[Rfam]
RNA sequence: UAAAAGGGUGUUUGCCGCUUUAAUGGCACGUUCGCCUUAAAAAGGGCGCGCGGGGUAUGGCUAUCAAGACAUAUCCAACACGUAAUUUUUGGGAAGGUGGGGCAGUCGGAUACAUGUGUACCGGCGCCUCC
Numbered sequence: 001u002a003a004a005a006g007g008g009u010g011u012u013u014g015c016c017g018c019u020u021u022a023a024u025g026g027c028a029c030g031u032u033c034g035c036c037u038u039a040a041a042a043a044g045g046g047c048g049c050g051c052g053g054g055g056u057a058u059g060g061c062u063a064u065c066a067a068g069a070c071a072u073a074u075c076c077a078a079c080a081c082g083u084a085a086u087u088u089u090u091g092g093g094a095a096g097g098u099g100g101g102g103c104a105g106u107c108g109g110a111u112a113c114a115u116g117u118g119u120a121c122c123g124g125c126g127c128c129u130c131c
Stems, first nucleotide, its partner, number of pairs: 008081005013028005029052003033048006053076007100129004105125005111120003